MIR5565 microRNA precursor family: a 109-nucleotide RNA from Sorghum bicolor.
The base pairs follow the family's consensus structure, which was predicted with RNAalifold.
Its family is annotated with RISC complex and miRNA-mediated post-transcriptional gene silencing in the Gene Ontology.
The match comes from Rfam's covariance-model search (85 bits).
RNA sequence: GUAGUCGGAUUCACAUCAAUCCACAUGUGUUGAGUUGGAUUGUUGUAGAAUUUAAACUAAAUUUCAUCACAACCCACACCAACACACAUGGAUUAAAAUGAAUCCAACA
Number, nucleotide and partner (000 for none) at each position: 001g000002u000003a000004g108005u107006c000007g105008g104009a103010u102011u101012c100013a099014c000015a000016u096017c000018a094019a093020u092021c091022c090023a089024c000025a000026u086027g085028u084029g083030u082031u081032g080033a000034g000035u000036u076037g075038g074039a000040u072041u071042g070043u069044u000045g067046u066047a000048g000049a000050a000051u000052u000053u000054a000055a000056a000057c000058u000059a000060a000061a000062u000063u000064u000065c000066a046067u045068c000069a043070c042071a041072a040073c000074c038075c037076a036077c000078a000079c000080c032081a031082a030083c029084a028085c027086a026087c000088a000089u023090g022091g021092a020093u019094u018095a000096a016097a000098a000099u013100g012101a011102a010103u009104c008105c007106a000107a005108c004109a000